[Rfam]
RNA sequence: UUAAAGGUUUUCUAGGGUUCCGCAGCAUUUUUGCUGGGCUGGUCCGAGAGAAAACUCAUCGUUUUUGACGAUGUCACGGAAGGAUAAAAGCCUGGGAGAA
Numbered sequence: 001u002u003a004a005a006g007g008u009u010u011u012c013u014a015g016g017g018u019u020c021c022g023c024a025g026c027a028u029u030u031u032u033g034c035u036g037g038g039c040u041g042g043u044c045c046g047a048g049a050g051a052a053a054a055c056u057c058a059u060c061g062u063u064u065u066u067g068a069c070g071a072u073g074u075c076a077c078g079g080a081a082g083g084a085u086a087a088a089a090g091c092c093u094g095g096g097a098g099a100a
Base pairs, nucleotide, nucleotide: 007055008054009053010052011051012050015045016044020042021041022039023036024035025034026033027032057073058072059071060070061069062068075095077098081093082092083091